[Rfam]
RNA: UnaL2 LINE 3' element
RNA sequence: GAAUACACUAAAUGUAAGUCGCUCUGGAAAAGAGCGUCUGCUAAAUGACUAAAG
Numbered sequence: 001g002a003a004u005a006c007a008c009u010a011a012a013u014g015u016a017a018g019u020c021g022c023u024c025u026g027g028a029a030a031a032g033a034g035c036g037u038c039u040g041c042u043a044a045a046u047g048a049c050u051a052a053a054g
Base pairs, nucleotide, nucleotide: 013043014041015040016039020036021035022034023033024032025031